Trypanosomatid snoRNA TB10Cs5H3: a 71-nucleotide RNA sequence from Leishmania infantum.

[Rfam]
RNA sequence: AAACUACAACUCUCUGGAUCCCUUGGGCCAUUUCUCGUUCCCAGUGCGAUCCUCAUCAGUUGUCGAAGAAG
Numbered sequence: 001a002a003a004c005u006a007c008a009a010c011u012c013u014c015u016g017g018a019u020c021c022c023u024u025g026g027g028c029c030a031u032u033u034c035u036c037g038u039u040c041c042c043a044g045u046g047c048g049a050u051c052c053u054c055a056u057c058a059g060u061u062g063u064c065g066a067a068g069a070a071g
Base pairs, nucleotide, nucleotide: 004065006063007062008061009060010059016052017051018050025042026041
Annotation
The literature on the family includes a 2008 paper in BMC Bioinformatics by Myslyuk et al., "Psiscan: a computational approach to identify H/ACA-like and AGA-like non-coding RNA in trypanosomatid genomes". Rfam's curators put it in the seed alignment.